Rfam assigns this 116-nucleotide RNA sequence from Nomascus leucogenys to the family "mir-16 microRNA precursor family". It scores 38 bits against the family's covariance model.
[Rfam]
RNA sequence: CAUUAACUUUAGAAGCACUGAAGUGUUGCAGUCUAAGCAAAUCACAUAUGACUUCUAGUGACAAUGUUAACUUGUUUUCUUUAGACUGCAUCACUUUAGUGCUUCUUAAGUUAAUG
Dot-bracket structure: (((.(((..(((((((((.(.((((.(((((((((((..........................................))))))))))).)))))..))))))))..)))).)))
Numbered sequence: 001c002a003u004u005a006a007c008u009u010u011a012g013a014a015g016c017a018c019u020g021a022a023g024u025g026u027u028g029c030a031g032u033c034u035a036a037g038c039a040a041a042u043c044a045c046a047u048a049u050g051a052c053u054u055c056u057a058g059u060g061a062c063a064a065u066g067u068u069a070a071c072u073u074g075u076u077u078u079c080u081u082u083a084g085a086c087u088g089c090a091u092c093a094c095u096u097u098a099g100u101g102c103u104u105c106u107u108a109a110g111u112u113a114a115u116g
Stems, first nucleotide, its partner, number of pairs: 001116003005112003010109001011106008020096001022095004027090011